A member of the RNA family "Histidine operon leader" from Psychromonas sp. CNPT3, 121 nucleotides long. The source organism's lineage runs through Bacteria, Pseudomonadati, Pseudomonadota, Alteromonadales and Psychromonas. Rfam's curators write: At least 6 amino acid operons are known to be regulated by attenuation. In each a leader sequence of 150-200 bp is found upstream of the first gene in the operon. The family's RNA type in Rfam is cis-regulatory leader. The sequence is in the family's curated seed alignment. The family's consensus secondary structure is taken from published work.

RNA sequence: ACACCACCAUCAUCAUAUGACGUGAUCUUUCAGGAUCUUGUUCUGGAAGAGUGUGAUUCUUCCAGUGGUUAUACAUCUAUCUAAAAAACCCCGGAAGGCAUCCCUUCCGGGGUUUUUUUUA
Number, nucleotide and partner (000 for none) at each position: 001a000002c000003a000004c000005c000006a000007c000008c000009a041010u040011c000012a036013u035014c034015a000016u000017a000018u032019g031020a030021c000022g000023u000024g000025a000026u000027c000028u000029u000030u020031c019032a018033g000034g014035a013036u012037c000038u000039u000040g010041u009042u000043c065044u064045g063046g062047a061048a060049g059050a058051g000052u000053g000054u000055g000056a000057u000058u050059c049060u048061u047062c046063c045064a044065g043066u000067g000068g000069u000070u000071a000072u000073a000074c000075a000076u000077c000078u000079a000080u000081c000082u000083a118084a117085a116086a115087a114088a113089c112090c111091c110092c109093g108094g107095a106096a105097g104098g103099c000100a000101u000102c000103c098104c097105u096106u095107c094108c093109g092110g091111g090112g089113u088114u087115u086116u085117u084118u083119u000120u000121a000